[Rfam]
Notes: Shown here is a 430-nucleotide part of an RNA from Folsomia candida, a member of the family "Eukaryotic large subunit ribosomal RNA". A reference for the family is Yusupov et al. (2001), "Crystal structure of the ribosome at 5.5 A resolution", Science. The source organism's lineage runs through Eukaryota, Eumetazoa, Ecdysozoa, Hexapoda and Folsomia. The family has 88 seed sequences and 107,465 matches in Rfam 15.1. The family is grouped with related families in Rfam's "LSU clan". Rfam links the family to the GO terms structural constituent of ribosome and ribosome.
RNA sequence: CGACCUCAGAUUAGGCGAGAUUACCCGCUAAAUUUAAGCAUAUUAAUAAGCGGAGGAAAAGAAACUAACAAGGAUUCCCUUAGUAACGGCGAGCGAAAAGGGAAGAGCCCAGCGCCGAAUCUUGUGUCCCCCGGAUGCAAAGACAUGUGGCGUUUGGGACGAGACAUUGCCUGUGCAGAAUGGUUAACUAAGUCCCUCUUGAACGGGGCCAUAGCCCAUGGAGGGUGCUAGGCCCGUAUGUUAACUGUAGUGUGCAGUGCGUCUCGUCCGUAGAGUCGGGUUGCUUGGGAGUGCAGCCCAAAUACGGUGGUAAACUCCAUCUAAGGCUAAAUAUGACCACGAGACCGAUAGCGAACAAGUACCGUGAGGGAAAGUUGAAAAGAACUUUGAAGAGAGAGUUCAAUAGUACGUGAAACCUCUCGGGGGUAAG
Numbered sequence: 001c002g003a004c005c006u007c008a009g010a011u012u013a014g015g016c017g018a019g020a021u022u023a024c025c026c027g028c029u030a031a032a033u034u035u036a037a038g039c040a041u042a043u044u045a046a047u048a049a050g051c052g053g054a055g056g057a058a059a060a061g062a063a064a065c066u067a068a069c070a071a072g073g074a075u076u077c078c079c080u081u082a083g084u085a086a087c088g089g090c091g092a093g094c095g096a097a098a099a100g101g102g103a104a105g106a107g108c109c110c111a112g113c114g115c116c117g118a119a120u121c122u123u124g125u126g127u128c129c130c131c132c133g134g135a136u137g138c139a140a141a142g143a144c145a146u147g148u149g150g151c152g153u154u155u156g157g158g159a160c161g162a163g164a165c166a167u168u169g170c171c172u173g174u175g176c177a178g179a180a181u182g183g184u185u186a187a188c189u190a191a192g193u194c195c196c197u198c199u200u201g202a203a204c205g206g207g208g209c210c211a212u213a214g215c216c217c218a219u220g221g222a223g224g225g226u227g228c229u230a231g232g233c234c235c236g237u238a239u240g241u242u243a244a245c246u247g248u249a250g251u252g253u254g255c256a257g258u259g260c261g262u263c264u265c266g267u268c269c270g271u272a273g274a275g276u277c278g279g280g281u282u283g284c285u286u287g288g289g290a291g292u293g294c295a296g297c298c299c300a301a302a303u304a305c306g307g308u309g310g311u312a313a314a315c316u317c318c319a320u321c322u323a324a325g326g327c328u329a330a331a332u333a334u335g336a337c338c339a340c341g342a343g344a345c346c347g348a349u350a351g352c353g354a355a356c357a358a359g360u361a362c363c364g365u366g367a368g369g370g371a372a373a374g375u376u377g378a379a380a381a382g383a384a385c386u387u388u389g390a391a392g393a394g395a396g397a398g399u400u401c402a403a404u405a406g407u408a409c410g411u412g413a414a415a416c417c418u419c420u421c422g423g424g425g426g427u428a429a430g
Stems, first nucleotide, its partner, number of pairs: 025053005035042002065072002076103005087093001106328004113152005119146001120143004157269002160266006175255003179251001182246007192209001194208002197206002217221001224234002278299007306321004362369002385396004